A member of the RNA family "nuoG RNA" from Xenorhabdus innexi, 41 nucleotides long. It scores 52 bits against the family's covariance model. Rfam classes the family as a cis-regulatory element.
[Rfam]
RNA sequence: GAAUUUUUGAUUAACGCCUGCUAUGGCAGGCCAUUGGGAAG
Number, nucleotide and partner (000 for none) at each position: 001g000002a000003a000004u000005u000006u000007u000008u000009g000010a000011u000012u000013a000014a000015c000016g031017c030018c029019u028020g027021c026022u000023a000024u000025g000026g021027c020028a019029g018030g017031c016032c000033a000034u000035u000036g000037g000038g000039a000040a000041g000